The family of this 146-nucleotide RNA from bacterium 0.1xD8-71 is "FMN riboswitch aptamer (RFN element)". It scores 113 bits against the family's covariance model. From the family's description: The RFN element is a highly conserved domain that is found frequently in the 5'-untranslated regions of prokaryotic mRNAs that encode for flavin mononucleotide (FMN) biosynthesis and transport proteins. This element is a metabolite-dependent riboswitch that directly binds FMN in the absence of proteins. In Bacillus subtilis, the riboswitch most likely controls gene expression by causing premature transcription termination within the 5' untranslated region of the ribDEAHT operon and precluding access to the ribosome-binding site of ypaA mRNA.The FMN riboswitch structure, reported in present an FMN-bound six-stem junction, adopts a butterfly-like scaffold, stapled together by opposingly directed but nearly identically folded peripheral domains.
RNA sequence: AAAGUUCUUCGGGGCAGGGUGCAAUUCCCUACCGGCGGUAUAGUCCGCGACCCGUUAUUGCAAAGCGUUUACCCGCGUGAUGCGCUGACGGCUGAUUUGGUGAGAUUCCAAAACCGACAGUAUAGUCUGGAUGAGAGAAGACAAAA
Numbered sequence: 001a002a003a004g005u006u007c008u009u010c011g012g013g014g015c016a017g018g019g020u021g022c023a024a025u026u027c028c029c030u031a032c033c034g035g036c037g038g039u040a041u042a043g044u045c046c047g048c049g050a051c052c053c054g055u056u057a058u059u060g061c062a063a064a065g066c067g068u069u070u071a072c073c074c075g076c077g078u079g080a081u082g083c084g085c086u087g088a089c090g091g092c093u094g095a096u097u098u099g100g101u102g103a104g105a106u107u108c109c110a111a112a113a114c115c116g117a118c119a120g121u122a123u124a125g126u127c128u129g130g131a132u133g134a135g136a137g138a139a140g141a142c143a144a145a146a
Base pairs, nucleotide, nucleotide: 006141007140008139009138010137017029018028019027031126032125033116034115035048036047037046038045043114044113052091053090054089055088056087057086096112097111098110099109100108118129119128120127